[Rfam]
RNA sequence: GAAGCACGCCAGACCGCCGCUGGUGCGAUCGUCGAAAGACGGCACUGGAGGAAGGUCCGGACUGCACAGGGCAGCGUAGCAGGCAACACCUGUCCGCCGCGAGGCGAGGAUCAGAGCAACAGAGACGAGUCGCGGUGCUUGCACCGCGGGUGAAACGGGCAAUCUCUACGCGCAGCAAUACCAAAUAGGCCGGCACUGAUGUGGUCCCGCGGAGCCGGCGGGUAGGUAGCACCGAGCCGGUGGGGCGACCCCCGGCCCAGAGGAAUGGCGGUCACGGAAGGAGAAAUCCUUCCGCACAAAAUCCGGCCUAUCGGCGAGCUUCACAC
Numbered sequence: 001g002a003a004g005c006a007c008g009c010c011a012g013a014c015c016g017c018c019g020c021u022g023g024u025g026c027g028a029u030c031g032u033c034g035a036a037a038g039a040c041g042g043c044a045c046u047g048g049a050g051g052a053a054g055g056u057c058c059g060g061a062c063u064g065c066a067c068a069g070g071g072c073a074g075c076g077u078a079g080c081a082g083g084c085a086a087c088a089c090c091u092g093u094c095c096g097c098c099g100c101g102a103g104g105c106g107a108g109g110a111u112c113a114g115a116g117c118a119a120c121a122g123a124g125a126c127g128a129g130u131c132g133c134g135g136u137g138c139u140u141g142c143a144c145c146g147c148g149g150g151u152g153a154a155a156c157g158g159g160c161a162a163u164c165u166c167u168a169c170g171c172g173c174a175g176c177a178a179u180a181c182c183a184a185a186u187a188g189g190c191c192g193g194c195a196c197u198g199a200u201g202u203g204g205u206c207c208c209g210c211g212g213a214g215c216c217g218g219c220g221g222g223u224a225g226g227u228a229g230c231a232c233c234g235a236g237c238c239g240g241u242g243g244g245g246c247g248a249c250c251c252c253c254g255g256c257c258c259a260g261a262g263g264a265a266u267g268g269c270g271g272u273c274a275c276g277g278a279a280g281g282a283g284a285a286a287u288c289c290u291u292c293c294g295c296a297c298a299a300a301a302u303c304c305g306g307c308c309u310a311u312c313g314g315c316g317a318g319c320u321u322c323a324c325a326c
Stems, first nucleotide, its partner, number of pairs: 001322005007316004011311001012273007020048007053309003057306005062175004069206002074171005079093005094108001095106004109166002114164002116160002130149008179228004189219006200211004236256005242251003

Rfam assigns this 326-nucleotide sequence from Ramlibacter humi to the family "Bacterial RNase P class A". Lineage of the source: Bacteria > Pseudomonadati > Pseudomonadota > Betaproteobacteria > Ramlibacter.